The record is a 133-nucleotide RNA from Felis catus, which matches "Small nucleolar RNA SNORA61" in Rfam.
Rfam 15.1 lists 881 matches to the family in 421 species.
Gene Ontology terms of the family: nucleolus and RNA processing.
RNA sequence: ACCCUCCGGUUCCCUUUCCCAUCAAAUCUGAACACUGGUUUUGGUGGUCAUAAGAGGAGGAAGAGAAACACUGAAGCUGGCCUCACAGUGCUUAUGGUCUGGUAUAUAACCCAUGGGCUAGUUUCAAACAAGG
Numbered sequence: 001a002c003c004c005u006c007c008g009g010u011u012c013c014c015u016u017u018c019c020c021a022u023c024a025a026a027u028c029u030g031a032a033c034a035c036u037g038g039u040u041u042u043g044g045u046g047g048u049c050a051u052a053a054g055a056g057g058a059g060g061a062a063g064a065g066a067a068a069c070a071c072u073g074a075a076g077c078u079g080g081c082c083u084c085a086c087a088g089u090g091c092u093u094a095u096g097g098u099c100u101g102g103u104a105u106a107u108a109a110c111c112c113a114u115g116g117g118c119u120a121g122u123u124u125c126a127a128a129c130a131a132g133g
Base pairs, nucleotide, nucleotide: 003060004059005058006057007056019047020046021045022044023043025040026039027038028037077121078120079119080118081117082116083115095109
Source information
The organism belongs to Felis, within Eukaryota. From the family's description: ACA61 is a member of the H/ACA class of snoRNA that guide the sites of modification of uridines to pseudouridines.